[Rfam]
A member of the RNA family "Small nucleolar RNA SNORD111" from Vireo altiloquus, 82 nucleotides long. A search with the family's covariance model found it, with a score of 47 bits. Rfam classes the family as a C/D-box small nucleolar RNA. For this family Rfam cites "Purified box C/D snoRNPs are able to reproduce site-specific 2'-O-methylation of target RNA in vitro" (Galardi et al., Mol Cell Biol, 2002). Its family is annotated with RNA processing and nucleolus in the Gene Ontology. The family has 5 seed sequences and 894 matches in Rfam 15.1. The source organism's lineage runs through Eukaryota, Craniata, Sauropsida, Sauria and Vireo.
RNA sequence: UGGCCUGAAAUGAUGUUCUGAGUUCGUGUCUCUUCUCUGAUAUGUGUUGUGGAGACAACCAGAUGCAUUUCUGAUCAGGCUU
Numbered sequence: 001u002g003g004c005c006u007g008a009a010a011u012g013a014u015g016u017u018c019u020g021a022g023u024u025c026g027u028g029u030c031u032c033u034u035c036u037c038u039g040a041u042a043u044g045u046g047u048u049g050u051g052g053a054g055a056c057a058a059c060c061a062g063a064u065g066c067a068u069u070u071c072u073g074a075u076c077a078g079g080c081u082u
Base pairs, nucleotide, nucleotide: 002081003080004079005078